[Rfam]
A member of the RNA family "Eukaryotic large subunit ribosomal RNA" from Thelohanellus kitauei, 328 nucleotides of a longer RNA. The family's consensus secondary structure is taken from published work. The organism belongs to Thelohanellus, within Eukaryota. The family has 88 seed sequences and 107,465 matches in Rfam 15.1.

RNA sequence: CAUGUGGAGAACGGAUGUUGACCCGUUUCCACCAGCUUAUGCAUAUAUCAUUGGUUGUUUGCUACCAGAGCACUAACCAAGCCUUGGGCAGAGUGGAUAACAUUGUUCCCCUCAAUGAGUCCAUUCCGUCUUCCAAAGCUGCUCAUUGUUGAAAAGCACAGUUUUCACCAUACAUCAGCCCACACACACGUUGUCGUCAAUACAUAAGCACUCAGUCUUGGAAAACAUUAAUGCAAAUACUGUCGUCUUGCAAACUCUGAUGAUGUUCCGGUAGACUAGUUCAAAUCUUUUUUUCCAGAGUCUUGGUCUUUCGAAUUUUCUAUAAUUC
Numbered sequence: 001c002a003u004g005u006g007g008a009g010a011a012c013g014g015a016u017g018u019u020g021a022c023c024c025g026u027u028u029c030c031a032c033c034a035g036c037u038u039a040u041g042c043a044u045a046u047a048u049c050a051u052u053g054g055u056u057g058u059u060u061g062c063u064a065c066c067a068g069a070g071c072a073c074u075a076a077c078c079a080a081g082c083c084u085u086g087g088g089c090a091g092a093g094u095g096g097a098u099a100a101c102a103u104u105g106u107u108c109c110c111c112u113c114a115a116u117g118a119g120u121c122c123a124u125u126c127c128g129u130c131u132u133c134c135a136a137a138g139c140u141g142c143u144c145a146u147u148g149u150u151g152a153a154a155a156g157c158a159c160a161g162u163u164u165u166c167a168c169c170a171u172a173c174a175u176c177a178g179c180c181c182a183c184a185c186a187c188a189c190g191u192u193g194u195c196g197u198c199a200a201u202a203c204a205u206a207a208g209c210a211c212u213c214a215g216u217c218u219u220g221g222a223a224a225a226c227a228u229u230a231a232u233g234c235a236a237a238u239a240c241u242g243u244c245g246u247c248u249u250g251c252a253a254a255c256u257c258u259g260a261u262g263a264u265g266u267u268c269c270g271g272u273a274g275a276c277u278a279g280u281u282c283a284a285a286u287c288u289u290u291u292u293u294u295c296c297a298g299a300g301u302c303u304u305g306g307u308c309u310u311u312c313g314a315a316u317u318u319u320c321u322a323u324a325a326u327u328c
Stems, first nucleotide, its partner, number of pairs: 279287001281285001313328005